[Rfam]
RNA sequence: AAGUAAGAGAGCGAUGGAGUUCGCUCCAAUCCUGGCUGGCCAGGUGAUGACUCCUACCGGAAA
Numbered sequence: 001a002a003g004u005a006a007g008a009g010a011g012c013g014a015u016g017g018a019g020u021u022c023g024c025u026c027c028a029a030u031c032c033u034g035g036c037u038g039g040c041c042a043g044g045u046g047a048u049g050a051c052u053c054c055u056a057c058c059g060g061a062a063a
Stems, first nucleotide, its partner, number of pairs: 010025004016054006031044004
RNA: Fluoride riboswitch aptamer (crcB RNA motif)